[Rfam]
RNA sequence: GUGUGACUCAAUGACGAACUGUUUCUAAACUGUGCGGAGGGAGCAGCUCUGAUGCCUCCAUUC
Numbered sequence: 001g002u003g004u005g006a007c008u009c010a011a012u013g014a015c016g017a018a019c020u021g022u023u024u025c026u027a028a029a030c031u032g033u034g035c036g037g038a039g040g041g042a043g044c045a046g047c048u049c050u051g052a053u054g055c056c057u058c059c060a061u062u063c
Base pairs, nucleotide, nucleotide: 001063003061004060005059016049017048019046020045021044022043023042024041025040030039031038
RNA: Selenocysteine insertion sequence 1
Organism: Echeneis naucrates